The family of this 98-nucleotide sequence from Prolemur simus is "Vault RNA". The source organism's lineage runs through Eukaryota, Metazoa, Euarchontoglires, Strepsirrhini and Prolemur. A search with the family's covariance model found it, with a score of 68 bits. Rfam describes the family as follows. This family of RNAs are found as part of the enigmatic vault ribonucleoprotein complex. The complex consists of a major vault protein (MVP), two minor vault proteins (VPARP and TEP1), and several small untranslated RNA molecules. It has been suggested that the vault complex is involved in drug resistance. The family's consensus secondary structure is taken from published work. Rfam classes the family as a non-coding RNA gene. The family has 73 seed sequences and 2,873 matches in Rfam 15.1.

RNA sequence: GGGCUGGCUUUAGCUCAGCGGUUCCUUCGGCAGUGUCUUAACAACCGCUUUGCAGAGGCAGAGCGGUUUGACACCCACGGGUGCUCUCCAGCCCUUUA
Numbered sequence: 001g002g003g004c005u006g007g008c009u010u011u012a013g014c015u016c017a018g019c020g021g022u023u024c025c026u027u028c029g030g031c032a033g034u035g036u037c038u039u040a041a042c043a044a045c046c047g048c049u050u051u052g053c054a055g056a057g058g059c060a061g062a063g064c065g066g067u068u069u070g071a072c073a074c075c076c077a078c079g080g081g082u083g084c085u086c087u088c089c090a091g092c093c094c095u096u097u098a
Base pairs, nucleotide, nucleotide: 002093003092004091005090006089007088013082014081015080016079018078020076021075027071028070029069030068